[Rfam]
RNA sequence: CAUUGAGUGAUGAUAUCCUUGACGGAAUUAUAAAAUGUCGAAUAAAAAUUUCAGACUACAAUUAUCUGAUCGCUG
Numbered sequence: 001c002a003u004u005g006a007g008u009g010a011u012g013a014u015a016u017c018c019u020u021g022a023c024g025g026a027a028u029u030a031u032a033a034a035a036u037g038u039c040g041a042a043u044a045a046a047a048a049u050u051u052c053a054g055a056c057u058a059c060a061a062u063u064a065u066c067u068g069a070u071c072g073c074u075g
Stems, first nucleotide, its partner, number of pairs: 001075002004072003

Rfam assigns this 75-nucleotide RNA from Populus alba to the family "Small nucleolar RNA Z155". For this family Rfam cites "The high diversity of snoRNAs in plants: identification and comparative study of 120 snoRNA genes from Oryza sativa" (Chen et al., Nucleic Acids Res, 2003). Gene Ontology terms of the family: nucleolus and RNA processing. Rfam classes the family as a C/D-box small nucleolar RNA. Pairs were carried over by alignment from the consensus structure.